This 128-nucleotide RNA from Salmo salar belongs to the Rfam family "Small nucleolar RNA ACA64". Its family is annotated with nucleolus and RNA processing in the Gene Ontology. By type it is an H/ACA-box small nucleolar RNA. The family's consensus secondary structure was predicted with WAR. NCBI's taxonomy places the organism under Eukaryota, Chordata, Euteleostomi, Euteleosteomorpha, Salmo. The match comes from Rfam's covariance-model search (58 bits).
[Rfam]
RNA sequence: ACUGUCUGAAAAUUACCUCAGAUGUAACAGUUGUCUGUGGUGAGAUAACUGUGCCGACAGUAUUGUUGUACGCUAAGCUUAUUGCCUGCUUUGUAUAGCAGUGUGAUUAAACCCUUGUCCCCACAUUA
Numbered sequence: 001a002c003u004g005u006c007u008g009a010a011a012a013u014u015a016c017c018u019c020a021g022a023u024g025u026a027a028c029a030g031u032u033g034u035c036u037g038u039g040g041u042g043a044g045a046u047a048a049c050u051g052u053g054c055c056g057a058c059a060g061u062a063u064u065g066u067u068g069u070a071c072g073c074u075a076a077g078c079u080u081a082u083u084g085c086c087u088g089c090u091u092u093g094u095a096u097a098g099c100a101g102u103g104u105g106a107u108u109a110a111a112c113c114c115u116u117g118u119c120c121c122c123a124c125a126u127u128a
Stems, first nucleotide, its partner, number of pairs: 006051001008049001010046001013043004021035004070118003079109001081107003087100003